[Rfam]
RNA: drum RNA
RNA sequence: AAGCAGAGAAACAAACAUUUGAUUCAAGACGCAGAUGUUUGUGGAGCUGAAAAGUAACAAAAGGGUUUGGCAGUUACCUCAACUUGAAUAGGUUUGGAACAGAAUUUCAAUCAAAAGUAAAUAUCAAAA
Numbered sequence: 001a002a003g004c005a006g007a008g009a010a011a012c013a014a015a016c017a018u019u020u021g022a023u024u025c026a027a028g029a030c031g032c033a034g035a036u037g038u039u040u041g042u043g044g045a046g047c048u049g050a051a052a053a054g055u056a057a058c059a060a061a062a063g064g065g066u067u068u069g070g071c072a073g074u075u076a077c078c079u080c081a082a083c084u085u086g087a088a089u090a091g092g093u094u095u096g097g098a099a100c101a102g103a104a105u106u107u108c109a110a111u112c113a114a115a116a117g118u119a120a121a122u123a124u125c126a127a128a129a
Stems, first nucleotide, its partner, number of pairs: 002048003011042011024087004070124001072122001091112004